[Rfam]
RNA sequence: UUUCAUAUUUAGCAAAGCAUUCGAAAGGAUGUGACGCAAAGCUAUAGGGACUGUAAAAUGUCAGCCAGUUGCAAAU
Numbered sequence: 001u002u003u004c005a006u007a008u009u010u011a012g013c014a015a016a017g018c019a020u021u022c023g024a025a026a027g028g029a030u031g032u033g034a035c036g037c038a039a040a041g042c043u044a045u046a047g048g049g050a051c052u053g054u055a056a057a058a059u060g061u062c063a064g065c066c067a068g069u070u071g072c073a074a075a076u
Base pairs, nucleotide, nucleotide: 012037013036017032018031019030020029021028022027040070041069042068043067047066048065049062050061051060